Record summary: Shown here is a 96-nucleotide RNA from Calothrix sp. NIES-4101, a member of the family "DUF3800-VIII RNA". Lineage of the source: Bacteria > Bacillati > Cyanobacteriota > Nostocales > Calothrix. By type it is a small RNA. The match comes from Rfam's covariance-model search (45 bits).
[Rfam]
RNA sequence: GUUGCCCUGCUUCUUACGAAGCCCCAAGUUCCACUUGGGAUACGCCAAAGCGCAAUCUUUUCAGGAUUUGUAAUGGCAUAGUAAGAGCGGGGUCAA
Numbered sequence: 001g002u003u004g005c006c007c008u009g010c011u012u013c014u015u016a017c018g019a020a021g022c023c024c025c026a027a028g029u030u031c032c033a034c035u036u037g038g039g040a041u042a043c044g045c046c047a048a049a050g051c052g053c054a055a056u057c058u059u060u061u062c063a064g065g066a067u068u069u070g071u072a073a074u075g076g077c078a079u080a081g082u083a084a085g086a087g088c089g090g091g092g093u094c095a096a
Stems, first nucleotide, its partner, number of pairs: 002095001004093007012086006021041001023039007